[Rfam]
RNA sequence: GCGUGGGUCGGCCCGUUGGCCCUCUGGGUUCCGGCGGGCCGGGGGAGCCGCCGUCUCAUUCCCCGCGGACGGCGGUCUGGUCCGGGAGACGACCAGCGUCUCCCGGACCACA
Numbered sequence: 001g002c003g004u005g006g007g008u009c010g011g012c013c014c015g016u017u018g019g020c021c022c023u024c025u026g027g028g029u030u031c032c033g034g035c036g037g038g039c040c041g042g043g044g045g046a047g048c049c050g051c052c053g054u055c056u057c058a059u060u061c062c063c064c065g066c067g068g069a070c071g072g073c074g075g076u077c078u079g080g081u082c083c084g085g086g087a088g089a090c091g092a093c094c095a096g097c098g099u100c101u102c103c104c105g106g107a108c109c110a111c112a
Stems, first nucleotide, its partner, number of pairs: 001111001006078002009041010048075009079109013
The family of this 112-nucleotide RNA from Streptomyces harbinensis is "Streptomyces RNA 4115".
Rfam's curators write: Identified by deep sequencing of transcriptome at the end of exponential growth phase.
A reference for the family is Vockenhuber et al. (2011), "Deep sequencing-based identification of small non-coding RNAs in Streptomyces coelicolor", RNA Biol.